Shown here is a 96-nucleotide RNA from Cladophialophora psammophila, a member of the family "Small nucleolar RNA Z13/snr52". The match comes from Rfam's covariance-model search (78 bits). Rfam links the family to the GO terms nucleolus and RNA processing. The family's RNA type in Rfam is C/D-box small nucleolar RNA. Pairs were carried over by alignment from the consensus structure, which was predicted with PFOLD.
RNA sequence: CCUGUCAGCGUGAUGAGAUAUCGGAUGUAAAUUCACAGACCUGUUCUGAAAGCGCAAAGCCAUGUGGAUGUUUCCGUUGCCUUCCUUCUGAUACUU
Numbered sequence: 001c002c003u004g005u006c007a008g009c010g011u012g013a014u015g016a017g018a019u020a021u022c023g024g025a026u027g028u029a030a031a032u033u034c035a036c037a038g039a040c041c042u043g044u045u046c047u048g049a050a051a052g053c054g055c056a057a058a059g060c061c062a063u064g065u066g067g068a069u070g071u072u073u074c075c076g077u078u079g080c081c082u083u084c085c086u087u088c089u090g091a092u093a094c095u096u
Stems, first nucleotide, its partner, number of pairs: 004094002022076004